[Rfam]
RNA: U2 spliceosomal RNA
RNA sequence: AUUGCUUCUUGACAUUUUGGCCAAGAUCAAGUGUAAUAUCUGUUUUUAUCAGUUUAAUAUCUAACAUGUCCUCUAUCAAAGGACAAUGUAAUAAACAGAUUUUUGUAAUAAGGAGUUGGAAUAGGAGCUUGCUCCAUCCAUUCCACACAUCGACCUAGUAUUCUAAUACCUUCAGGAAAGGUACACACACA
Numbered sequence: 001a002u003u004g005c006u007u008c009u010u011g012a013c014a015u016u017u018u019g020g021c022c023a024a025g026a027u028c029a030a031g032u033g034u035a036a037u038a039u040c041u042g043u044u045u046u047u048a049u050c051a052g053u054u055u056a057a058u059a060u061c062u063a064a065c066a067u068g069u070c071c072u073c074u075a076u077c078a079a080a081g082g083a084c085a086a087u088g089u090a091a092u093a094a095a096c097a098g099a100u101u102u103u104u105g106u107a108a109u110a111a112g113g114a115g116u117u118g119g120a121a122u123a124g125g126a127g128c129u130u131g132c133u134c135c136a137u138c139c140a141u142u143c144c145a146c147a148c149a150u151c152g153a154c155c156u157a158g159u160a161u162u163c164u165a166a167u168a169c170c171u172u173c174a175g176g177a178a179a180g181g182u183a184c185a186c187a188c189a190c191a
Stems, first nucleotide, its partner, number of pairs: 007026003011022001013020001047066001049064001051062002068084005074078001112144005118138002124135004149182003154176003158172001